[Rfam]
RNA sequence: GGUUUUAACCCAGUAUCAAAAGGUACUAUGGGCCUCUGACCUGCCACAUGUGGCUGUGUCAAAAACCCUAAUUUUUGGACCGCCUUCUCGGGGUAUCCGGGAGGGCAAA
Numbered sequence: 001g002g003u004u005u006u007a008a009c010c011c012a013g014u015a016u017c018a019a020a021a022g023g024u025a026c027u028a029u030g031g032g033c034c035u036c037u038g039a040c041c042u043g044c045c046a047c048a049u050g051u052g053g054c055u056g057u058g059u060c061a062a063a064a065a066c067c068c069u070a071a072u073u074u075u076u077g078g079a080c081c082g083c084c085u086u087c088u089c090g091g092g093g094u095a096u097c098c099g100g101g102a103g104g105g106c107a108a109a
Stems, first nucleotide, its partner, number of pairs: 007035001009031002013026001015024003037061004041056001043054003086105003092098002

SL2 RNA: a 109-nucleotide sequence from Cylicocyclus nassatus. This family represents SL2 RNA. SL2 RNA is involved in trans splicing in lower eukaryotes. Trans-splicing is a form of RNA processing. The acquisition of a spliced leader from a SL RNA is a intra-molecular reaction which precisely joins exons derived from separately transcribed RNAs. The organism belongs to Cylicocyclus, within Eukaryota. Rfam classes the family as a non-coding RNA gene. The base pairs follow the family's consensus structure, which is taken from published work. The match comes from Rfam's covariance-model search (62 bits).